This 105-nucleotide sequence from Pseudoxanthomonas spadix belongs to the Rfam family "Guanidine-I riboswitch aptamer". Lineage of the source: Bacteria > Pseudomonadota > Gammaproteobacteria > Lysobacteraceae > Pseudoxanthomonas spadix. A search with the family's covariance model found it, with a score of 85 bits. From the family's description: This family represents a conserved RNA structure found upstream of the ykkC and yxkD genes in Bacillus subtilis and related genes in other bacteria. The function of this family is unclear although it has been suggested that it may function to switch on efflux pumps and detoxification systems in response to harmful environmental molecules.
RNA sequence: AAAAAGCGACGCUAGGGUUCCGACCGGACAUCGAUUGCCGGUGCUGGUCCGAGAGCGGCGGACCUCCGAUAGGAGGUUACACGGCGGGAUAAAAGCCCGGGAGAC
Numbered sequence: 001a002a003a004a005a006g007c008g009a010c011g012c013u014a015g016g017g018u019u020c021c022g023a024c025c026g027g028a029c030a031u032c033g034a035u036u037g038c039c040g041g042u043g044c045u046g047g048u049c050c051g052a053g054a055g056c057g058g059c060g061g062a063c064c065u066c067c068g069a070u071a072g073g074a075g076g077u078u079a080c081a082c083g084g085c086g087g088g089a090u091a092a093a094a095g096c097c098c099g100g101g102a103g104a105c
Base pairs, nucleotide, nucleotide: 007060008059010057011056012055015050016049020047021046022044023042024041025040026039027038061078062077063076064075065074066073067072080100082103086098087097088096